[Rfam]
RNA sequence: UAUUAAACCUGACAGUAGUGGAAAUACUUUUUGUUGCACUGCCUAGACAAGUCCCGCAGAACGUUGACACAAAAAGAUUGUAACGGAUGGCAGGGCUAUAC
Numbered sequence: 001u002a003u004u005a006a007a008c009c010u011g012a013c014a015g016u017a018g019u020g021g022a023a024a025u026a027c028u029u030u031u032u033g034u035u036g037c038a039c040u041g042c043c044u045a046g047a048c049a050a051g052u053c054c055c056g057c058a059g060a061a062c063g064u065u066g067a068c069a070c071a072a073a074a075a076g077a078u079u080g081u082a083a084c085g086g087a088u089g090g091c092a093g094g095g096c097u098a099u100a101c
Stems, first nucleotide, its partner, number of pairs: 009093003013089002018084002023079003029074006
RNA: Flavo-1 RNA